[Rfam]
RNA sequence: CUUCAACCUCGGGGAUGCAAACAACAGGGGGUUGCGGUAAAUAGCGGAACUGGUGGUCAGGGAUGGAAUACCGCAAAAGGGGUGGCGAAGAUAGCGCCCCUUCCCGAAAAGGCUGUCGCGU
Dot-bracket structure: ((.(((((((..............[[[))))))).))......((((.(]]].......{{{{.....).))))...((((((......[[[[[[))))))}}}}......]]]]]]....
RNA: Betaproteobacteria-1 RNA